[Rfam]
RNA sequence: AUACUCCCUCUGUAAACUAAUAUAAGACCAUUUAGAUCACUAUACUAGUGAUGUAAACGGUCUUAUAUUAGUUUACAGAGGGAGUGU
Numbered sequence: 001a002u003a004c005u006c007c008c009u010c011u012g013u014a015a016a017c018u019a020a021u022a023u024a025a026g027a028c029c030a031u032u033u034a035g036a037u038c039a040c041u042a043u044a045c046u047a048g049u050g051a052u053g054u055a056a057a058c059g060g061u062c063u064u065a066u067a068u069u070a071g072u073u074u075a076c077a078g079a080g081g082g083a084g085u086g087u
Base pairs, nucleotide, nucleotide: 003085004084005083007081008080009079010078011077013075014074015073016072017071019069020068021067022066023065024064025063026062027061028060029059031057032056033055034054036052037051038050039049040048041047
A member of the RNA family "MIR1120/MIR1122 microRNA precursor family" from Aegilops tauschii, 87 nucleotides long. The family's consensus secondary structure was predicted with RNAalifold. The match comes from Rfam's covariance-model search (87 bits).